[Rfam]
RNA sequence: UUGGAUGUGAAUUGAUUUAUGUUUGGAUGCAUUACCAUUAAGUGAUUUUUACUAAUUUAUGUUGUUUGGAUAG
Numbered sequence: 001u002u003g004g005a006u007g008u009g010a011a012u013u014g015a016u017u018u019a020u021g022u023u024u025g026g027a028u029g030c031a032u033u034a035c036c037a038u039u040a041a042g043u044g045a046u047u048u049u050u051a052c053u054a055a056u057u058u059a060u061g062u063u064g065u066u067u068g069g070a071u072a073g
Base pairs, nucleotide, nucleotide: 011060012059014057015056016055017054021052022051025048026047027046028045030044031043032042033041

Shown here is a 73-nucleotide RNA from Medicago truncatula, a member of the family "MIR5272 microRNA precursor family".